[Rfam]
RNA sequence: GCCAAGAUGUUGCCUUUAUCUGCAUUUGCACCUGCACCUUAUUUUCUUCUCGAUUUCAGUUUUCAAGUCCAAAGAUUGAAAAUAUCGCGCGUGUGUGUGUGUGGAAAUGAGACAGGGAAAGAGGUGCAAGUGUAGAUGCAGGUGAAUGCCUUUUUGGA
Numbered sequence: 001g002c003c004a005a006g007a008u009g010u011u012g013c014c015u016u017u018a019u020c021u022g023c024a025u026u027u028g029c030a031c032c033u034g035c036a037c038c039u040u041a042u043u044u045u046c047u048u049c050u051c052g053a054u055u056u057c058a059g060u061u062u063u064c065a066a067g068u069c070c071a072a073a074g075a076u077u078g079a080a081a082a083u084a085u086c087g088c089g090c091g092u093g094u095g096u097g098u099g100u101g102u103g104g105a106a107a108u109g110a111g112a113c114a115g116g117g118a119a120a121g122a123g124g125u126g127c128a129a130g131u132g133u134a135g136a137u138g139c140a141g142g143u144g145a146a147u148g149c150c151u152u153u154u155u156g157g158a
Stems, first nucleotide, its partner, number of pairs: 002157006009150001012149002015146017033128007054081010
MIR530 microRNA precursor family: a 158-nucleotide RNA sequence from Nyssa sinensis. The family's consensus secondary structure was predicted with WAR. Rfam links the family to the GO terms RISC complex and miRNA-mediated post-transcriptional gene silencing. Rfam 15.1 lists 119 matches to the family in 78 species. On this family, see Lu et al., Plant J 2008: "Stress-responsive microRNAs in Populus". The match comes from Rfam's covariance-model search (93 bits).